[Rfam]
The record is a 208-nucleotide RNA sequence from Digitaria exilis, which matches "MIR6217 microRNA precursor family" in Rfam. The organism belongs to Digitaria, within Eukaryota. The family's consensus secondary structure was predicted with RNAalifold.

RNA sequence: CGGCCACAGAAUAACUAUUCUAUAGCCACUUUGAUUUACUACAAUUACUAUGGUAAUUUACGAGAUUAUAGUAAAUCUUGCUAUGUGAUUUACUAUAAUGUGGCUCUCAUGUGUUAUAGUAACCCAAUUACCAUGUGAUAUUGUAGUAAAUCAGUACAUAAAAUUGUAGUAAAACCGAGGUGGCUAUAGAAUAACUAUUCUAUGGCCG
Numbered sequence: 001c002g003g004c005c006a007c008a009g010a011a012u013a014a015c016u017a018u019u020c021u022a023u024a025g026c027c028a029c030u031u032u033g034a035u036u037u038a039c040u041a042c043a044a045u046u047a048c049u050a051u052g053g054u055a056a057u058u059u060a061c062g063a064g065a066u067u068a069u070a071g072u073a074a075a076u077c078u079u080g081c082u083a084u085g086u087g088a089u090u091u092a093c094u095a096u097a098a099u100g101u102g103g104c105u106c107u108c109a110u111g112u113g114u115u116a117u118a119g120u121a122a123c124c125c126a127a128u129u130a131c132c133a134u135g136u137g138a139u140a141u142u143g144u145a146g147u148a149a150a151u152c153a154g155u156a157c158a159u160a161a162a163a164u165u166g167u168a169g170u171a172a173a174a175c176c177g178a179g180g181u182g183g184c185u186a187u188a189g190a191a192u193a194a195c196u197a198u199u200c201u202a203u204g205g206c207c208g
Base pairs, nucleotide, nucleotide: 001208002207003206004205005204006203008201009200010199011198012197013196016193017192018191019190020189021188022187023186024185025184026183027182028181029180030179031178032177036172037171038170039169040168041167042166043165044164045163046162049158051156052155054153056151057150058149059148060147061146065144066143068141069140070139072137073136085131086130087129088128089127090126091121092120093119094118095117096116097115098114099113100112101111